[Rfam]
RNA sequence: ACAUGCCAUGCGGGAGAGAUUGCCGCCGGACCCCGGUCCGACGGUGGCGCCGAAGGAGCAACCGCCCCCGGAAACUCUCAGGCAAAAGGACCGCUUGGCCCAG
Numbered sequence: 001a002c003a004u005g006c007c008a009u010g011c012g013g014g015a016g017a018g019a020u021u022g023c024c025g026c027c028g029g030a031c032c033c034c035g036g037u038c039c040g041a042c043g044g045u046g047g048c049g050c051c052g053a054a055g056g057a058g059c060a061a062c063c064g065c066c067c068c069c070g071g072a073a074a075c076u077c078u079c080a081g082g083c084a085a086a087a088g089g090a091c092c093g094c095u096u097g098g099c100c101c102a103g
Stems, first nucleotide, its partner, number of pairs: 006098003010094004020047006049083003052079002056077003062070001

Shown here is a 103-nucleotide sequence from Azospirillum thermophilum, a member of the family "Glycine riboswitch aptamer". A search with the family's covariance model found it, with a score of 64 bits. Rfam links the family to the GO term glycine biosynthetic process. From the family's description: This family represents the bacterial glycine riboswitch.